[Rfam]
The family of this 85-nucleotide RNA from Parazoarcus communis is "Burkholderia RNA 7 (anti-hemB)". Rfam links the family to the GO terms bacterial biofilm matrix and protein binding. Rfam describes the family as follows. This RNA motif was identified by computational search in b-proteobacteria Burkholderia. Co-purified with Hfq, expression confirmed by Northern blot. NCBI's taxonomy places the organism under Bacteria, Pseudomonadati, Rhodocyclales, Zoogloeaceae, Parazoarcus. Rfam 15.1 lists 479 matches to the family in 458 species. The match comes from Rfam's covariance-model search (73 bits). The base pairs follow the family's consensus structure, which is taken from published work.

RNA sequence: UCUCCCGCUUCACCUCCCUGAGCGGGGCCUCGACCCUAUCGAGGCUUUUCACCCCCGGCCUCCCCCUUAGCCGGGGGUUUUUGUU
Numbered sequence: 001u002c003u004c005c006c007g008c009u010u011c012a013c014c015u016c017c018c019u020g021a022g023c024g025g026g027g028c029c030u031c032g033a034c035c036c037u038a039u040c041g042a043g044g045c046u047u048u049u050c051a052c053c054c055c056c057g058g059c060c061u062c063c064c065c066c067u068u069a070g071c072c073g074g075g076g077g078u079u080u081u082u083g084u085u
Stems, first nucleotide, its partner, number of pairs: 004026006027045007052077008